[Rfam]
RNA: MIR5534 microRNA precursor family
Organism: Oryza meridionalis
RNA sequence: AACAUUAGCGUCUAGACGAUAACAGAUAGAAUGGCCGCGGCGAUGGAGGAUUGUCCCCUGAUGAGGCCGCCAUUCUAGCUGUUGUCGUUAAGGCGCUAAAGU
Number, nucleotide and partner (000 for none) at each position: 001a000002a102003c101004a000005u099006u098007a097008g096009c095010g094011u093012c092013u091014a000015g089016a088017c087018g086019a085020u084021a083022a082023c081024a080025g079026a000027u077028a076029g075030a074031a073032u072033g071034g070035c069036c000037g067038c066039g000040g000041c063042g062043a000044u060045g059046g058047a000048g056049g055050a054051u000052u000053g000054u050055c049056c048057c000058c046059u045060g044061a000062u042063g041064a000065g000066g038067c037068c000069g035070c034071c033072a032073u031074u030075c029076u028077a027078g000079c025080u024081g023082u022083u021084g020085u019086c018087g017088u016089u015090a000091a013092g012093g011094c010095g009096c008097u007098a006099a005100a000101g003102u002